[Rfam]
RNA: Glycine riboswitch aptamer
Organism: Thermanaeromonas sp. C210
RNA sequence: AUGAAAGGAGUAGAAGAGACCCCUUAGCGUUUUUCGCAGGAAAGGGGCGCCGAAGGAGCAACGCCGGGUAGAAAGGUGGCCGCCCGGAGGAAACUCUCAGGCAAAAGUACUACUCCCGGACC
Numbered sequence: 001a002u003g004a005a006a007g008g009a010g011u012a013g014a015a016g017a018g019a020c021c022c023c024u025u026a027g028c029g030u031u032u033u034u035c036g037c038a039g040g041a042a043a044g045g046g047g048c049g050c051c052g053a054a055g056g057a058g059c060a061a062c063g064c065c066g067g068g069u070a071g072a073a074a075g076g077u078g079g080c081c082g083c084c085c086g087g088a089g090g091a092a093a094c095u096c097u098c099a100g101g102c103a104a105a106a107g108u109a110c111u112a113c114u115c116c117c118g119g120a121c122c
Base pairs, nucleotide, nucleotide: 007116008115009114010113011112012111013110020047021046022045023044024043025042049102050101051100052098053097056096057095058094062089